[Rfam]
RNA sequence: UUGUUAUCAAGAAAGGCCGAGGGAAUAGACCCGGAGAAGCCUUAGCAACCCUUUACUUUGUAAAGAAGGUGCUAAAUUCUACCAUUUUAUGGAUAGAUAACCA
Number, nucleotide and partner (000 for none) at each position: 001u103002u000003g101004u100005u099006a098007u097008c096009a000010a000011g000012a000013a043014a042015g041016g040017c039018c000019g000020a000021g032022g031023g030024a000025a000026u081027a080028g079029a078030c023031c022032c021033g000034g000035a000036g000037a000038a000039g017040c016041c015042u014043u013044a073045g072046c071047a070048a000049c069050c068051c065052u064053u063054u062055a000056c000057u000058u000059u000060g000061u000062a054063a053064a052065g051066a000067a000068g050069g049070u047071g046072c045073u044074a000075a000076a000077u095078u029079c028080u027081a026082c092083c091084a090085u089086u000087u000088u000089a085090u084091g083092g082093a000094u000095a077096g008097a007098u006099a005100a004101c003102c000103a001

This 103-nucleotide RNA sequence from Lutibacter sp. B1 belongs to the Rfam family "SAM riboswitch aptamer (S box leader)". The family's consensus secondary structure is taken from published work. NCBI's taxonomy places the organism under Bacteria, Pseudomonadati, Bacteroidota, Flavobacteriia, Lutibacter. On this family, see Rodionov et al., Nucleic Acids Res 2004: "Comparative genomics of the methionine metabolism in Gram-positive bacteria: a variety of regulatory systems".